mir-2774 microRNA precursor family: a 67-nucleotide sequence from Bombyx mori. The source organism's lineage runs through Eukaryota, Opisthokonta, Ditrysia, Bombycoidea and Bombyx. Pairs were carried over by alignment from the consensus structure, which was predicted with RNAalifold. For this family Rfam cites "MicroRNAs of Bombyx mori identified by Solexa sequencing" (Liu et al., BMC Genomics, 2010).
RNA sequence: ACAACAUUAGGACCGUCAGUCUACCGAGCAAUAUCACCCGCUCUGUGGAAGAUCUUCCCUCGGUCGU
Numbered sequence: 001a002c003a004a005c006a007u008u009a010g011g012a013c014c015g016u017c018a019g020u021c022u023a024c025c026g027a028g029c030a031a032u033a034u035c036a037c038c039c040g041c042u043c044u045g046u047g048g049a050a051g052a053u054c055u056u057c058c059c060u061c062g063g064u065c066g067u
Stems, first nucleotide, its partner, number of pairs: 004064002010058003015053003020049005026043004